The family of this 148-nucleotide RNA is "Group II catalytic intron D1-D4-7".
RNA sequence: CCGAGUAUUUCCUUACUCCGAGCCUAUUGGUACAUGCGAUUCUGGUAACGGAAAGGUGUGGAGCUACCAAGACAAUGAAGCUUGACUGCAAAGUCUAGGUGAAUCCGUGAGGAUAACCGAACUCUCCCAGCAUCAGGGGGUAUAAGCU
Numbered sequence: 001c002c003g004a005g006u007a008u009u010u011c012c013u014u015a016c017u018c019c020g021a022g023c024c025u026a027u028u029g030g031u032a033c034a035u036g037c038g039a040u041u042c043u044g045g046u047a048a049c050g051g052a053a054a055g056g057u058g059u060g061g062a063g064c065u066a067c068c069a070a071g072a073c074a075a076u077g078a079a080g081c082u083u084g085a086c087u088g089c090a091a092a093g094u095c096u097a098g099g100u101g102a103a104u105c106c107g108u109g110a111g112g113a114u115a116a117c118c119g120a121a122c123u124c125u126c127c128c129a130g131c132a133u134c135a136g137g138g139g140g141u142a143u144a145a146g147c148u
Base pairs, nucleotide, nucleotide: 003018004017005016006015007014028069029068030067031066032065033060034059035058036057037056040053041052042051043050044049082097084095085094086093087092098118099117100116105112106111124140125139126138127137128136
The pairing is the family consensus, mapped onto this sequence. Its family is annotated with Group II intron splicing in the Gene Ontology. Group II introns are found in rRNA, tRNA and mRNA of organelles in fungi, plants and protists, and also in mRNA in bacteria. On this family, see Bonen and Vogel, Trends Genet 2001: "The ins and outs of group II introns". It is one of the family's seed sequences.